The family of this 90-nucleotide RNA from Heyndrickxia sporothermodurans is "pan motif". By type it is a cis-regulatory element. The family's consensus secondary structure is taken from published work. The organism belongs to Heyndrickxia, within Bacteria.

RNA sequence: UGGGUAGUAUCCAUUGGAACUGCACCUUGCUUUAAAUGUUAUUAAUUUCAUAGUAUUCUGCCUUGAUCCGUUAUGGACGGGGACGGAGGG
Numbered sequence: 001u002g003g004g005u006a007g008u009a010u011c012c013a014u015u016g017g018a019a020c021u022g023c024a025c026c027u028u029g030c031u032u033u034a035a036a037u038g039u040u041a042u043u044a045a046u047u048u049c050a051u052a053g054u055a056u057u058c059u060g061c062c063u064u065g066a067u068c069c070g071u072u073a074u075g076g077a078c079g080g081g082g083a084c085g086g087a088g089g090g
Base pairs, nucleotide, nucleotide: 002026003025004023005022006021007020008019010018011017058086059085060084061082062081063080064079065078067077068076069075